[Rfam]
RNA: Small nucleolar RNA SNORA77
Organism: Gouania willdenowi
RNA sequence: GCAGACACACUCUGUUCUUUGCUGCACACUUCAGCAUGGAACUUUUUCUGUCUGCUACAUAAACAUGCAGAAUAUAACACUUCAAUGGUUUUCCAGACUGCUGAGUCAGUUAUGUUCUGCUACAUUACA
Numbered sequence: 001g002c003a004g005a006c007a008c009a010c011u012c013u014g015u016u017c018u019u020u021g022c023u024g025c026a027c028a029c030u031u032c033a034g035c036a037u038g039g040a041a042c043u044u045u046u047u048c049u050g051u052c053u054g055c056u057a058c059a060u061a062a063a064c065a066u067g068c069a070g071a072a073u074a075u076a077a078c079a080c081u082u083c084a085a086u087g088g089u090u091u092u093c094c095a096g097a098c099u100g101c102u103g104a105g106u107c108a109g110u111u112a113u114g115u116u117c118u119g120c121u122a123c124a125u126u127a128c129a
Stems, first nucleotide, its partner, number of pairs: 001055006014042005020036001022034003067120007075112004
Dot-bracket structure: ((((((.......(((((.(.(((.......))).).))))).......))))))...........(((((((.((((..............................)))).))))))).........